[Rfam]
RNA sequence: GUUCUCUCAGCUCUGUUCAGUCACAUGUGUAAAUGGUGUGAUUGGCGUUAUAAGAGAGGCAUAGCAAUUGAAACCCUUAUGCACGGCGGGCUGACUUUAUAAUGGUCUUCCUGUUCCUUUUUGGGGCUCAACAUCU
Numbered sequence: 001g002u003u004c005u006c007u008c009a010g011c012u013c014u015g016u017u018c019a020g021u022c023a024c025a026u027g028u029g030u031a032a033a034u035g036g037u038g039u040g041a042u043u044g045g046c047g048u049u050a051u052a053a054g055a056g057a058g059g060c061a062u063a064g065c066a067a068u069u070g071a072a073a074c075c076c077u078u079a080u081g082c083a084c085g086g087c088g089g090g091c092u093g094a095c096u097u098u099a100u101a102a103u104g105g106u107c108u109u110c111c112u113g114u115u116c117c118u119u120u121u122u123g124g125g126g127c128u129c130a131a132c133a134u135c136u
Base pairs, nucleotide, nucleotide: 002064003063005061007059008058011056012055013054014053019043020042021041022040023039024038025037026036074125075124076123079118081116088112089111090110093107094106095105096104
RNA: Small nucleolar RNA SNORA64/SNORA10 family